[Rfam]
RNA sequence: UGUCUUUGGCAAUGGUAGAACUCACACUGGUGAGCUAUCUGGUUCCGGUGGUUCUAGACUUGCCAACUACCGCC
Numbered sequence: 001u002g003u004c005u006u007u008g009g010c011a012a013u014g015g016u017a018g019a020a021c022u023c024a025c026a027c028u029g030g031u032g033a034g035c036u037a038u039c040u041g042g043u044u045c046c047g048g049u050g051g052u053u054c055u056a057g058a059c060u061u062g063c064c065a066a067c068u069a070c071c072g073c074c
Base pairs, nucleotide, nucleotide: 002070003069006066007065008064009063010062011061012060016056017055018054019053020052021051025050026049027048028047029046030045